Rfam assigns this 132-nucleotide RNA sequence from Anhinga anhinga to the family "U11 spliceosomal RNA". Pairs were carried over by alignment from the consensus structure, which is taken from published work. Clan: U1 clan.

[Rfam]
RNA sequence: AAAAAGCGCUUCUGCUGUGUGUGGCACAUGGGGUGAUCCACAGCCGCCCCCGCGGAAUCAACAUCAAGAGAUUUCGAAAGCACAAUUUUUGUGGGGAGGGGAUGGCUGGUAACCGCAUGUUCCAGCACUCUG
Numbered sequence: 001a002a003a004a005a006g007c008g009c010u011u012c013u014g015c016u017g018u019g020u021g022u023g024g025c026a027c028a029u030g031g032g033g034u035g036a037u038c039c040a041c042a043g044c045c046g047c048c049c050c051c052g053c054g055g056a057a058u059c060a061a062c063a064u065c066a067a068g069a070g071a072u073u074u075c076g077a078a079a080g081c082a083c084a085a086u087u088u089u090u091g092u093g094g095g096g097a098g099g100g101g102a103u104g105g106c107u108g109g110u111a112a113c114c115g116c117a118u119g120u121u122c123c124a125g126c127a128c129u130c131u132g
Stems, first nucleotide, its partner, number of pairs: 008081004013026005027052001031050001032048004037043001053076007099130003105126005111121003